RNA sequence: AAGGCAACUUUUUGCCGAGUGAAUCGAACAUCGAUCUCUCUCUUUUUCCCUGUUGCCUAAAUCAAUUAAUGGUUGUGAAGAUUAAUUUGAUCGAUUACUUGUUGAUAAAAUCUAUCUUUUUCUCUUUGCUGCUACAUUA
Numbered sequence: 001a002a003g004g005c006a007a008c009u010u011u012u013u014g015c016c017g018a019g020u021g022a023a024u025c026g027a028a029c030a031u032c033g034a035u036c037u038c039u040c041u042c043u044u045u046u047u048c049c050c051u052g053u054u055g056c057c058u059a060a061a062u063c064a065a066u067u068a069a070u071g072g073u074u075g076u077g078a079a080g081a082u083u084a085a086u087u088u089g090a091u092c093g094a095u096u097a098c099u100u101g102u103u104g105a106u107a108a109a110a111u112c113u114a115u116c117u118u119u120u121u122c123u124c125u126u127u128g129c130u131g132c133u134a135c136a137u138u139a
Stems, first nucleotide, its partner, number of pairs: 003057006017042003021038002023035004064137001067134002071130003077124002080121002089116003093112004
RNA: Small nucleolar RNA snoR144
Organism: Arabis alpina